[Rfam]
c-di-AMP riboswitch aptamer (ydaO/yuaA leader): a 150-nucleotide RNA from Streptacidiphilus fuscans. Pairs were carried over by alignment from the consensus structure. The organism belongs to Streptacidiphilus, within Bacteria. The match comes from Rfam's covariance-model search (66 bits).
RNA sequence: AACGUCUACUUGACGACCGGACAGGAGCGGGGGACCCAGGUACGUCGCCGUGAACUCGGUUCACGGCUAGGGGUGAAGGCGCGAGAGCGCCCGGGCUACCUCACGGCCCGAACCCGACAGCUCACCUCGCAGGCGUCGGAGAGGAACAUU
Numbered sequence: 001a002a003c004g005u006c007u008a009c010u011u012g013a014c015g016a017c018c019g020g021a022c023a024g025g026a027g028c029g030g031g032g033g034a035c036c037c038a039g040g041u042a043c044g045u046c047g048c049c050g051u052g053a054a055c056u057c058g059g060u061u062c063a064c065g066g067c068u069a070g071g072g073g074u075g076a077a078g079g080c081g082c083g084a085g086a087g088c089g090c091c092c093g094g095g096c097u098a099c100c101u102c103a104c105g106g107c108c109c110g111a112a113c114c115c116g117a118c119a120g121c122u123c124a125c126c127u128c129g130c131a132g133g134c135g136u137c138g139g140a141g142a143g144g145a146a147c148a149u150u
Stems, first nucleotide, its partner, number of pairs: 003135004010026002027130006037070001071115003079090004093109004